[Rfam]
RNA sequence: UGGGAGGCAGAUACCUGGGCAGUGCUAAGCAAUGCUCUGUCCGUCACAUGACCUCCCUACAGAAUCCUUGCUCUCUGAUGACCGCGGUGAACUGAGAGAAAUCACCACGGACAGAUACGGAGCAGACAUUC
Numbered sequence: 001u002g003g004g005a006g007g008c009a010g011a012u013a014c015c016u017g018g019g020c021a022g023u024g025c026u027a028a029g030c031a032a033u034g035c036u037c038u039g040u041c042c043g044u045c046a047c048a049u050g051a052c053c054u055c056c057c058u059a060c061a062g063a064a065u066c067c068u069u070g071c072u073c074u075c076u077g078a079u080g081a082c083c084g085c086g087g088u089g090a091a092c093u094g095a096g097a098g099a100a101a102u103c104a105c106c107a108c109g110g111a112c113a114g115a116u117a118c119g120g121a122g123c124a125g126a127c128a129u130u131c
Base pairs, nucleotide, nucleotide: 002057003056004055005054006053007052016043017042018041022037024035025034068125069124070123071122072121073120074119082110083109084108087105088104089103090102
The family of this 131-nucleotide RNA from Gouania willdenowi is "Small Cajal body specific RNA 8". Rfam describes the family as follows. scaRNAs are a specific class of small nuclear RNAs which localise to the Cajal bodies and guide the modification of RNA polymerase II transcribed spliceosomal RNAs U1, U2, U4, U5 and U12. U92 belong to the H/ACA box class of guide RNAs as it has the predicted hairpin-hinge-hairpin-tail structure, conserved H/ACA-box motifs and is found associated with GAR1. It scores 125 bits against the family's covariance model. The base pairs follow the family's consensus structure, which is taken from published work.